[Rfam]
RNA sequence: CCUGGAGGGGGGAAGGCUGUAGCUCUUACAGUGAAACUGAUUUGUAAGCGUAUAGCUUUUCCCCUUCUAUG
Dot-bracket structure: ..(((((.(((.((..(((((...((((((............))))))..)))))..)).))).)))))..
RNA: mir-965 microRNA precursor family